U5 spliceosomal RNA: a 118-nucleotide sequence from Meloidogyne floridensis. Pairs were carried over by alignment from the consensus structure, which is taken from published work. The match comes from Rfam's covariance-model search (86 bits). Rfam describes the family as follows. U5 RNA is a component of both types of known spliceosome. Gene Ontology terms of the family: U5 snRNP and spliceosomal tri-snRNP complex assembly.
RNA sequence: UAUCCCUGGUCCCCUUGUAUUCGGACGAAGAAAUCUUUCGCCUUUUACUAAAGAUUUCCGUGCAGGGGGACGUUUAUGGGUUUAAAUAAUUUUUGGAAGCAUUUCCUUUGGAAAUGAC
Number, nucleotide and partner (000 for none) at each position: 001u000002a000003u000004c080005c079006c078007u000008g000009g071010u070011c069012c068013c067014c066015u065016u064017g063018u062019a061020u000021u000022c000023g000024g000025a000026c000027g000028a000029a000030g000031a057032a056033a055034u054035c053036u052037u051038u050039c000040g000041c000042c000043u000044u000045u000046u000047a000048c000049u000050a038051a037052a036053g035054a034055u033056u032057u031058c000059c000060g000061u019062g018063c017064a016065g015066g014067g013068g012069g011070a010071c009072g000073u000074u000075u000076a000077u000078g006079g005080g004081u000082u000083u000084a000085a000086a000087u000088a000089a000090u000091u000092u000093u000094u000095g000096g000097a000098a000099g000100c116101a115102u114103u113104u112105c000106c000107u000108u000109u000110g000111g000112a104113a103114a102115u101116g100117a000118c000
Annotation
Taxonomically the source falls in Meloidogyne (Eukaryota, Bilateria, Ecdysozoa, Meloidogyninae). Rfam classes the family as a spliceosomal small nuclear RNA.